A member of the RNA family "c-di-AMP riboswitch aptamer (ydaO/yuaA leader)" from Oceanobacillus profundus, 155 nucleotides long. The base pairs follow the family's consensus structure. Taxonomically the source falls in Oceanobacillus (Bacteria, Bacilli, Caryophanales, Bacillaceae). A search with the family's covariance model found it, with a score of 72 bits.
[Rfam]
RNA sequence: UUAUAUGCUUCGCUUAAUCUUAUUGUAAGAGCGGGGGACCCAAUCAUUACGGCGGAAUUUCCGCGUGGGGUGAAUCCUAUUACGGAGGGGCUUACUUUACUGUUUCCUUAGUCCUAACCCGAAAGCUAACCUCGUCAGCGUUUAACGGAAACAAA
Numbered sequence: 001u002u003a004u005a006u007g008c009u010u011c012g013c014u015u016a017a018u019c020u021u022a023u024u025g026u027a028a029g030a031g032c033g034g035g036g037g038a039c040c041c042a043a044u045c046a047u048u049a050c051g052g053c054g055g056a057a058u059u060u061c062c063g064c065g066u067g068g069g070g071u072g073a074a075u076c077c078u079a080u081u082a083c084g085g086a087g088g089g090g091c092u093u094a095c096u097u098u099a100c101u102g103u104u105u106c107c108u109u110a111g112u113c114c115u116a117a118c119c120c121g122a123a124a125g126c127u128a129a130c131c132u133c134g135u136c137a138g139c140g141u142u143u144a145a146c147g148g149a150a151a152c153a154a155a
Stems, first nucleotide, its partner, number of pairs: 011140004018030003031135006041067002068120003076085002088114004